The record is a 77-nucleotide sequence from Canis lupus, which matches "mir-103/107 microRNA precursor family" in Rfam. For this family Rfam cites "miRNPs: a novel class of ribonucleoproteins containing numerous microRNAs" (Mourelatos et al., Genes Dev, 2002).
RNA sequence: UUGUGCUUUCAGCUUCUUUACAGUGCUGCCUUGUAGCAUUCAGGUCAAGCAGCAUUGUACAGGGCUAUGAAAGAACC
Numbered sequence: 001u002u003g004u005g006c007u008u009u010c011a012g013c014u015u016c017u018u019u020a021c022a023g024u025g026c027u028g029c030c031u032u033g034u035a036g037c038a039u040u041c042a043g044g045u046c047a048a049g050c051a052g053c054a055u056u057g058u059a060c061a062g063g064g065c066u067a068u069g070a071a072a073g074a075a076c077c
Base pairs, nucleotide, nucleotide: 014064015063016062017061019059020058021057022056023055024054025053026052027051028050030049031048032047033046
About the family: This family consists of the mammalian microRNA (miRNA) precursors mir-103 and mir107. Rfam links the family to the GO terms RISC complex and miRNA-mediated post-transcriptional gene silencing. Taxonomically the source falls in Canis lupus (Eukaryota, Metazoa, Chordata, Canidae).